A member of the RNA family "Mesorhizobail RNA 36" from Mesorhizobium japonicum, 90 nucleotides long.
For this family Rfam cites "A Genome-Wide Prediction and Identification of Intergenic Small RNAs by Comparative Analysis in Mesorhizobium huakuii 7653R" (Fuli et al., Front Microbiol, 2017).
The source organism's lineage runs through Bacteria, Pseudomonadota, Alphaproteobacteria, Hyphomicrobiales and Mesorhizobium japonicum.
About the family: Existence predicted via genome wide comparisons with 4 related strains. Analysed further by deep sequencing and Northern blot under various stress conditions.
The family's consensus secondary structure was predicted with RNAfold.
It is one of the family's seed sequences.
It is annotated as a small RNA.

[Rfam]
RNA sequence: GCGGAUGGUCUAGAGUCCAGGAAAAGGCAGGGUUCAACCAUGUAUAAGGCCGUCGGAUCACGGGGAUCCCGGGUCAGCCGCGUUCUCUGG
Numbered sequence: 001g002c003g004g005a006u007g008g009u010c011u012a013g014a015g016u017c018c019a020g021g022a023a024a025a026g027g028c029a030g031g032g033u034u035c036a037a038c039c040a041u042g043u044a045u046a047a048g049g050c051c052g053u054c055g056g057a058u059c060a061c062g063g064g065g066a067u068c069c070c071g072g073g074u075c076a077g078c079c080g081c082g083u084u085c086u087c088u089g090g
Stems, first nucleotide, its partner, number of pairs: 002056001004054008015045002018042002021039001026034002061089006068082001070080003